A member of the RNA family "Small Cajal body specific RNA 4" from Canis lupus, 129 nucleotides long. The family is grouped with related families in Rfam's "SCARNA4 clan". Taxonomically the source falls in Canis lupus (Eukaryota, Dipnotetrapodomorpha, Tetrapoda, Carnivora). scaRNAs are a specific class of small nuclear RNAs which localise to the Cajal bodies and guide the modification of RNA polymerase II transcribed spliceosomal RNAs U1, U2, U4, U5 and U12. ACA26 belongs to the H/ACA box class of guide RNAs as it has the predicted hairpin-hinge-hairpin-tail structure, conserved H/ACA-box motifs and is found associated with GAR1. It is annotated as a small Cajal body RNA.
RNA sequence: GCUGGAGGACUAAGAAGGCGGAGUCUGGUGAAGUAAGACUCUGCUGAUACAAUCCUCCUAGAAAACAGGGUGGGAGAGAGCAGCCCUCGGUGGAGAACAGCACAGGGCUGACUGUACGACCCAACAUGC
Numbered sequence: 001g002c003u004g005g006a007g008g009a010c011u012a013a014g015a016a017g018g019c020g021g022a023g024u025c026u027g028g029u030g031a032a033g034u035a036a037g038a039c040u041c042u043g044c045u046g047a048u049a050c051a052a053u054c055c056u057c058c059u060a061g062a063a064a065a066c067a068g069g070g071u072g073g074g075a076g077a078g079a080g081c082a083g084c085c086c087u088c089g090g091u092g093g094a095g096a097a098c099a100g101c102a103c104a105g106g107g108c109u110g111a112c113u114g115u116a117c118g119a120c121c122c123a124a125c126a127u128g129c
Base pairs, nucleotide, nucleotide: 002061003060004058005057006056007055008054009053017045018044019043021041022040023039024038025037026036068122069121070120071119079113080112081110082109083108084107085106086105087104091102092101

The family has 24 seed sequences and 634 matches in Rfam 15.1.